[Rfam]
RNA sequence: GCUGGCCACGUGCAUUCUUGGGUUAUUAACACACUUUAAAUUCAAUUGUUAUUGCUUGAGAAUACACGUAGUUGAC
Numbered sequence: 001g002c003u004g005g006c007c008a009c010g011u012g013c014a015u016u017c018u019u020g021g022g023u024u025a026u027u028a029a030c031a032c033a034c035u036u037u038a039a040a041u042u043c044a045a046u047u048g049u050u051a052u053u054g055c056u057u058g059a060g061a062a063u064a065c066a067c068g069u070a071g072u073u074g075a076c
Stems, first nucleotide, its partner, number of pairs: 001076001003074003008069003012065001014063010025053001027051005
Shown here is a 76-nucleotide RNA from Polypedilum vanderplanki, a member of the family "mir-137 microRNA precursor family". Lineage of the source: Eukaryota > Opisthokonta > Allotriocarida > Neoptera > Polypedilum. Rfam links the family to the GO terms RISC complex and miRNA-mediated post-transcriptional gene silencing. The family is grouped with related families in Rfam's "mir-137 clan". The literature on the family includes a 2007 paper in Genome Res by Ruby et al., "Evolution, biogenesis, expression, and target predictions of a substantially expanded set of Drosophila microRNAs". Pairs were carried over by alignment from the consensus structure, which was predicted with RNAalifold.